[Rfam]
RNA sequence: AAGAGUCUCGAGUCAAUAAAGACUAGGAAGAUUGACUCAAGAAAAAA
Numbered sequence: 001a002a003g004a005g006u007c008u009c010g011a012g013u014c015a016a017u018a019a020a021g022a023c024u025a026g027g028a029a030g031a032u033u034g035a036c037u038c039a040a041g042a043a044a045a046a047a
Base pairs, nucleotide, nucleotide: 007041008040010038011037012036013035014034015033016032017031
Plastid-rpl16 group II-D1 intron: a 47-nucleotide RNA sequence from Lumnitzera littorea.
Rfam's curators write: Plastid-rpl16 is a non-coding RNA (ncRNA) recognised in plastids. It was recognised in and intronic region of a ribosome rpl16 gene.
For this family Rfam cites "Retrograde signaling in plants: A critical review focusing on the GUN pathway and beyond" (Richter et al., Plant Commun, 2023).
The family has 538 seed sequences and 1,446 matches in Rfam 15.1.
Taxonomically the source falls in Lumnitzera (Eukaryota, Viridiplantae, Euphyllophyta, Pentapetalae).